[Rfam]
Record summary: The family of this 595-nucleotide part of an RNA from Culex quinquefasciatus is "Eukaryotic large subunit ribosomal RNA". The organism belongs to Culex pipiens complex, within Eukaryota. The family's consensus secondary structure is taken from published work.

RNA sequence: CCCUCCGAAGUUUCCCUCAGGAUAGCUGGAGCACGCAACAUUUCGGAUUCUAUUCUUAUCUGGUAAAGCGAAUGAUUAGAGGCCUUAGGUUCGAAAUGAUCUUAACCUAUUCUCAAACUAUAAAUGGGUACGUACCAUGACAUUCUUGCAUGAUGUCAUUGCAACCGUUCGAACGUCGGGCCGCCCCUUGCCUUUUGGGCCGUGCCGGUCGACGUACAAGAUAUCUGUGUGCUUAGUGGGCCAAGUUUUGGUAAGCAGAACUGGUGCUGUGGGAUGAACCAAACGUGAUGUUACGGCGCCUAAAUAAACGACGCAUCAUAGAUACCAUGAAAGGUGUUGAUUGCUACAGACAGCAGGACGGUGGACAUGGAAGUUGUCAUCCGCUAAGGAGUGUGUAACAACUCACCUGCCGAAGCAAUUAGCCCUUAAAAUGGAUGGCGCUUAAGUCGUUUGCCUAUACAUUACCGCUGGCGUACAGUGGUGCGCGGCGCCCUAGCCUCCGUCCGCACUUUGAGACGCCAGCGAGUAGGAGGGUCUGGUGGUGUGCGUUGAAGUGCCUGGCGUAAGCCGACAUGGAGCCGCCACUAGCACAGAU
Numbered sequence: 001c002c003c004u005c006c007g008a009a010g011u012u013u014c015c016c017u018c019a020g021g022a023u024a025g026c027u028g029g030a031g032c033a034c035g036c037a038a039c040a041u042u043u044c045g046g047a048u049u050c051u052a053u054u055c056u057u058a059u060c061u062g063g064u065a066a067a068g069c070g071a072a073u074g075a076u077u078a079g080a081g082g083c084c085u086u087a088g089g090u091u092c093g094a095a096a097u098g099a100u101c102u103u104a105a106c107c108u109a110u111u112c113u114c115a116a117a118c119u120a121u122a123a124a125u126g127g128g129u130a131c132g133u134a135c136c137a138u139g140a141c142a143u144u145c146u147u148g149c150a151u152g153a154u155g156u157c158a159u160u161g162c163a164a165c166c167g168u169u170c171g172a173a174c175g176u177c178g179g180g181c182c183g184c185c186c187c188u189u190g191c192c193u194u195u196u197g198g199g200c201c202g203u204g205c206c207g208g209u210c211g212a213c214g215u216a217c218a219a220g221a222u223a224u225c226u227g228u229g230u231g232c233u234u235a236g237u238g239g240g241c242c243a244a245g246u247u248u249u250g251g252u253a254a255g256c257a258g259a260a261c262u263g264g265u266g267c268u269g270u271g272g273g274a275u276g277a278a279c280c281a282a283a284c285g286u287g288a289u290g291u292u293a294c295g296g297c298g299c300c301u302a303a304a305u306a307a308a309c310g311a312c313g314c315a316u317c318a319u320a321g322a323u324a325c326c327a328u329g330a331a332a333g334g335u336g337u338u339g340a341u342u343g344c345u346a347c348a349g350a351c352a353g354c355a356g357g358a359c360g361g362u363g364g365a366c367a368u369g370g371a372a373g374u375u376g377u378c379a380u381c382c383g384c385u386a387a388g389g390a391g392u393g394u395g396u397a398a399c400a401a402c403u404c405a406c407c408u409g410c411c412g413a414a415g416c417a418a419u420u421a422g423c424c425c426u427u428a429a430a431a432u433g434g435a436u437g438g439c440g441c442u443u444a445a446g447u448c449g450u451u452u453g454c455c456u457a458u459a460c461a462u463u464a465c466c467g468c469u470g471g472c473g474u475a476c477a478g479u480g481g482u483g484c485g486c487g488g489c490g491c492c493c494u495a496g497c498c499u500c501c502g503u504c505c506g507c508a509c510u511u512u513g514a515g516a517c518g519c520c521a522g523c524g525a526g527u528a529g530g531a532g533g534g535u536c537u538g539g540u541g542g543u544g545u546g547c548g549u550u551g552a553a554g555u556g557c558c559u560g561g562c563g564u565a566a567g568c569c570g571a572c573a574u575g576g577a578g579c580c581g582c583c584a585c586u587a588g589c590a591c592a593g594a595u
Stems, first nucleotide, its partner, number of pairs: 001534006011024001013022003028233002031230003055132001057130005066121001067119002073115003078110001080108003085105005092098001134215002138211004240265003244262007270281003285465005291459001295455003304452001306451001310448003332426003336423010353410005359383003364378003384388001389404001393402002466524009535590001537587008546579002554574002560569003